[Rfam]
RNA sequence: UACCUGGUUGAUUCUGCCAGUAGUCAUAUGCUUGUCUCAAAGAUUAAGCCAUGCAUGUCUAAGUAUACGCAAAUUAUACUGUGAAACUGCGAAUGGCUCAUUAAAUCAGUUAUAGUUUAUUUGAUGUUUCUUGCUACAUGGAUAACUGUGGUAAUUCUAGAGCUAAUACAUGCGUAAAAAGCCCCGACUUCUGGAAGGGGUGUAUUUAUUAGAUAAAAACCAUCCUCCUCGGAGUUUGGUGAUUCAUAAUAACUUCUCGAAUCGCACGGCCUUGUGCUGGCGAUGCUUCAUUCAAAUAUCUGCCCUAUCAACUGUCGAUGGUAGGAUAGAGGCCUACCAUGGUUGCAACGGGUAACGGGGAAUAAGGGUUCGAUUCCGGAGAGGGAGCCUGAGAAACGGCUACCACAUCCAAGGAAGGCAGCAGGCGCGCAAAUUACCCAAUCCCGACACGGGGAGGUAGUGACAAUAAAUAACAAUGCAGGGCCCUUUUGGGUCUUGUAAUUGGAAUGAGUACAAUUUAAAUCCCUUAACGAGGAACGAUUGGAGGGCAAGUCUGGUGCCAGCAGCCGCGGUAAUUCCAGCUCCAAUAGCGUAUAUUAA
Dot-bracket structure: ...(((((.......))))).(((.(((((((..(.(...((.....(((.(((..((...(((....((..........))...)))))......(((.......(((..((..((....(((............((((.....((.(((.....))).))......))))........(((((..((...))..)))))....((((((.......((((..(((....)))..))))......)))))).........((((.((((.....))))))))....)))...))))..))).(((....(((....((((((((.......)))))))))))......)))...((((((((....))))...))))))).((.(((..........))).)).(.((....)).)...)))))).).....(.(((...(((((...))))).)))).)....).).....(((((((((((((....)))))))))).)))......(((.(...........)).)).........((((((.......((((.....((....)).......)))))))))).))))))))))..
Annotation: Rfam assigns this 600-nucleotide part of an RNA from Pseudozyma hubeiensis to the family "Eukaryotic small subunit ribosomal RNA". Its family is annotated with structural constituent of ribosome and ribosome in the Gene Ontology. A reference for the family is Yusupov et al. (2001), "Crystal structure of the ribosome at 5.5 A resolution", Science.